[Rfam]
RNA sequence: GGCCCACUAUUUGCUGAAGCCUCCUCACAGGGCUAUCAACGUCGACAGCCCGCAAAACCUCACGACAAAGGCGCCGU
Numbered sequence: 001g002g003c004c005c006a007c008u009a010u011u012u013g014c015u016g017a018a019g020c021c022u023c024c025u026c027a028c029a030g031g032g033c034u035a036u037c038a039a040c041g042u043c044g045a046c047a048g049c050c051c052g053c054a055a056a057a058c059c060u061c062a063c064g065a066c067a068a069a070g071g072c073g074c075c076g077u
Base pairs, nucleotide, nucleotide: 031050032049033048034047036045037044

The record is a 77-nucleotide RNA from Pseudomonas putida, which matches "narK RNA" in Rfam. Taxonomically the source falls in Pseudomonas putida (Bacteria, Gammaproteobacteria, Pseudomonadales, Pseudomonadaceae). It is annotated as a cis-regulatory element.